RNA sequence: AGGAGGAUUGAGAAAGUUAAGCAGCUGCAUUUGUUCUGCAUUAACUGGUUAUAACCUCCUAGAAAAAAAAACAAGUGCUAAAGUGCUUUUAAUUUCUGUAUGAAGUAGUCAUUGCAAUACUUGUGUACAUUUC
Numbered sequence: 001a002g003g004a005g006g007a008u009u010g011a012g013a014a015a016g017u018u019a020a021g022c023a024g025c026u027g028c029a030u031u032u033g034u035u036c037u038g039c040a041u042u043a044a045c046u047g048g049u050u051a052u053a054a055c056c057u058c059c060u061a062g063a064a065a066a067a068a069a070a071a072c073a074a075g076u077g078c079u080a081a082a083g084u085g086c087u088u089u090u091a092a093u094u095u096c097u098g099u100a101u102g103a104a105g106u107a108g109u110c111a112u113u114g115c116a117a118u119a120c121u122u123g124u125g126u127a128c129a130u131u132u133c
Stems, first nucleotide, its partner, number of pairs: 002059005015046004019041001021039004076125003082121002085118001087116001094111001097108001099107002
RNA: Small nucleolar RNA SNORA47
Organism: Sinocyclocheilus grahami